Rfam assigns this 120-nucleotide part of an RNA from Plasmodium falciparum to the family "Eukaryotic small subunit ribosomal RNA".
[Rfam]
RNA sequence: ACCGACUAGGUGUUGGAUGAAUAUAAAAAAUAUAUAAAUAUGUAGCAUUUCUUAGGGAAUGUUGAUUUUAUAUUAGAAUUGCUUCCUUCAGUACCUUAUGAGAAAUCAAAGUCUUUGGGU
Numbered sequence: 001a002c003c004g005a006c007u008a009g010g011u012g013u014u015g016g017a018u019g020a021a022u023a024u025a026a027a028a029a030a031u032a033u034a035u036a037a038a039u040a041u042g043u044a045g046c047a048u049u050u051c052u053u054a055g056g057g058a059a060u061g062u063u064g065a066u067u068u069u070a071u072a073u074u075a076g077a078a079u080u081g082c083u084u085c086c087u088u089c090a091g092u093a094c095c096u097u098a099u100g101a102g103a104a105a106u107c108a109a110a111g112u113c114u115u116u117g118g119g120u
Base pairs, nucleotide, nucleotide: 001120002119003118004113005112006111008096009095010094013091014090015089016088017087019085020084024081025080026079100107101106